[Rfam]
RNA sequence: GAAGAACAGAGGGAGCUCCCUUCAGUCCAAGCAUAGGAAGUUUAAGAUUCAAUUUGUCUCCCGCAUCAUUCACUCAUUUACAGAGCAUAUUUUUGCUGAGAUAUAUCGUCCUUUUUAUAACACCGUAUUUGGAUGAAUGAGUCGGCAGCUAAUUGAAAUCCCAUCUAGCCACCCAUGAGUGGACUGAAGAAAGCUCCCUUUUUACCUGCU
Number, nucleotide and partner (000 for none) at each position: 001g000002a000003a000004g000005a000006a000007c000008a000009g000010a000011g000012g000013g196014a195015g194016c193017u192018c000019c000020c189021u000022u000023c186024a185025g184026u183027c182028c181029a180030a000031g000032c000033a000034u000035a000036g173037g000038a000039a000040g000041u000042u000043u000044a000045a000046g000047a000048u000049u000050c000051a000052a000053u000054u000055u000056g000057u000058c148059u147060c000061c145062c144063g143064c000065a000066u000067c139068a138069u137070u136071c000072a000073c000074u000075c131076a000077u000078u000079u000080a000081c000082a000083g000084a000085g000086c000087a000088u000089a000090u000091u000092u000093u000094u000095g000096c000097u000098g000099a000100g000101a000102u000103a000104u000105a000106u000107c000108g000109u000110c000111c000112u000113u000114u000115u000116u000117a000118u000119a000120a000121c000122a000123c000124c000125g000126u000127a000128u000129u000130u000131g075132g000133a000134u000135g000136a070137a069138u068139g067140a000141g000142u000143c063144g062145g061146c000147a059148g058149c000150u000151a000152a000153u000154u000155g000156a000157a000158a000159u000160c000161c000162c000163a000164u000165c000166u000167a000168g000169c000170c000171a000172c000173c036174c000175a000176u000177g000178a000179g000180u029181g028182g027183a026184c025185u024186g023187a000188a000189g020190a000191a000192a017193g016194c015195u014196c013197c000198c000199u000200u000201u000202u000203u000204a000205c000206c000207u000208g000209c000210u000
RNA: MIR159 microRNA precursor family